[Rfam]
RNA sequence: GGUCUGUGAUGAGAAAUAGCCAAAUCUGAGCACCGGGAGAUAAAUAAGCUCCCAGGUGUCAUGAUUUGUAUGGAGUUCUGAGA
Numbered sequence: 001g002g003u004c005u006g007u008g009a010u011g012a013g014a015a016a017u018a019g020c021c022a023a024a025u026c027u028g029a030g031c032a033c034c035g036g037g038a039g040a041u042a043a044a045u046a047a048g049c050u051c052c053c054a055g056g057u058g059u060c061a062u063g064a065u066u067u068g069u070a071u072g073g074a075g076u077u078c079u080g081a082g083a
Base pairs, nucleotide, nucleotide: 030059031058032057033056034055038050039049041047
RNA: Small nucleolar RNA U2-19